[Rfam]
Shown here is a 101-nucleotide RNA sequence from Oceaniovalibus sp. ACAM 378, a member of the family "TPP riboswitch aptamer (THI element)". The family's consensus secondary structure is taken from published work.

RNA sequence: AAUCAUCCGUCGGGGGGCCCAUUUGGGCUGAGAGGUGCAUGCACCGACCCGUCGAACCUGAUCCGGGUUAUGCCGGCGUAGGGAACGGGUAGAUUGUGCGA
Numbered sequence: 001a002a003u004c005a006u007c008c009g010u011c012g013g014g015g016g017g018c019c020c021a022u023u024u025g026g027g028c029u030g031a032g033a034g035g036u037g038c039a040u041g042c043a044c045c046g047a048c049c050c051g052u053c054g055a056a057c058c059u060g061a062u063c064c065g066g067g068u069u070a071u072g073c074c075g076g077c078g079u080a081g082g083g084a085a086c087g088g089g090u091a092g093a094u095u096g097u098g099c100g101a
Stems, first nucleotide, its partner, number of pairs: 006089005011051004016045001017028004035044003057082004063076004

Its family is annotated with thiamine pyrophosphate binding in the Gene Ontology.
The organism belongs to Oceaniovalibus, within Bacteria.